[Rfam]
Nucleotides: 236
Base pairs, nucleotide, nucleotide: 001062002061003060004059005058006057010041011040013038042051043050044049065216066215067214069212070084071083072082073081074080087210088209089208090207091206092205093204094203095202108145109144114138115137116136117135118134119133120132121131125235127233128232147192148191149190150189151188152187153186154185155184159183160182162180163179164178166176167175168174
Number, partner (000 for none) and nucleotide at each position: 001062g002061u003060a004059a005058a006057c007000a008000a009000c010041u011040c012000a013038c014000c015000g016000c017000u018000a019000a020000c021000u022000c023000a024000c025000c026000c027000a028000c029000g030000a031000g032000u033000a034000u035000a036000g037000c038013g039000g040011g041010a042051g043050c044049u045000u046000u047000c048000c049044a050043g051042c052000u053000c054000a055000a056000a057006g058005u059004u060003u061002a062001c063000c064000a065216g066215u067214c068000u069212a070084a071083g072082u073081u074080u075000u076000c077000a078000a079000a080074a081073a082072a083071c084070u085000a086000c087210g088209u089208u090207a091206u092205u093204u094203c095202u096000a097000a098000g099000u100000g101000u102000u103000u104000a105000a106000g107000u108145u109144c110000c111000u112000a113000c114138c115137u116136g117135g118134g119133g120132a121131u122000g123000c124000g125235u126000a127233g128232c129000u130000a131121g132120u133119c134118c135117c136116c137115a138114g139000c140000u141000c142000u143000a144109g145108a146000a147192c148191c149190u150189a151188a152187u153186u154185a155184u156000u157000a158000a159183a160182c161000a162180g163179g164178u165000g166176u167175a168174a169000u170000u171000g172000a173000g174168u175167u176166a177000a178164g179163c180162c181000a182160g183159u184155g185154u186153a187152a188151u189150u190149a191148g192147g193000a194000a195000a196000g197000u198000a199000c200000c201000g202095a203094g204093a205092a206091a207090u208089a209088a210087c211000u212069u213000u214067g215066a216065c217000g218000u219000u220000c221000g222000c223000g224000a225000a226000g227000c228000g229000u230000g231000u232128g233127c234000g235125a236000a
HNH endonuclease-associated RNA and ORF (HEARO) RNA: a 236-nucleotide RNA from Moorena producens. Pairs were carried over by alignment from the consensus structure, which is taken from published work. The family's RNA type in Rfam is non-coding RNA gene.